Rfam assigns this 77-nucleotide RNA from Rhinolophus ferrumequinum to the family "Small nucleolar RNA MBII-202". By type it is a C/D-box small nucleolar RNA. Gene Ontology terms of the family: RNA processing and nucleolus. The family's consensus secondary structure was predicted with PFOLD. A reference for the family is Huttenhofer et al. (2001), "RNomics: an experimental approach that identifies 201 candidates for novel, small, non-messenger RNAs in mouse", EMBO J.
RNA sequence: CGAUGACACUCUCCAGAAUCACUGUACUGCUUUGAUGAAAGUACACUUGAACCCUUUUAAUAUAGUCAAUAAUUUUC
Numbered sequence: 001c002g003a004u005g006a007c008a009c010u011c012u013c014c015a016g017a018a019u020c021a022c023u024g025u026a027c028u029g030c031u032u033u034g035a036u037g038a039a040a041g042u043a044c045a046c047u048u049g050a051a052c053c054c055u056u057u058u059a060a061u062a063u064a065g066u067c068a069a070u071a072a073u074u075u076u077c
Stems, first nucleotide, its partner, number of pairs: 002077002005074002